[Rfam]
This 91-nucleotide RNA from Medicago truncatula belongs to the Rfam family "Small nucleolar RNA R64/Z200 family". The organism belongs to Medicago, within Eukaryota. The family's RNA type in Rfam is C/D-box small nucleolar RNA.
RNA sequence: UUUCUACGAUGAUGAACUAAGAAGUAAAUUUACAUGUCAGACUUGAGAUUUUACAAUCAAAGAGAAACAGUUCUUGUUCACCGAGCAGAUU
Numbered sequence: 001u002u003u004c005u006a007c008g009a010u011g012a013u014g015a016a017c018u019a020a021g022a023a024g025u026a027a028a029u030u031u032a033c034a035u036g037u038c039a040g041a042c043u044u045g046a047g048a049u050u051u052u053a054c055a056a057u058c059a060a061a062g063a064g065a066a067a068c069a070g071u072u073c074u075u076g077u078u079c080a081c082c083g084a085g086c087a088g089a090u091u
Stems, first nucleotide, its partner, number of pairs: 003089003007085001047058004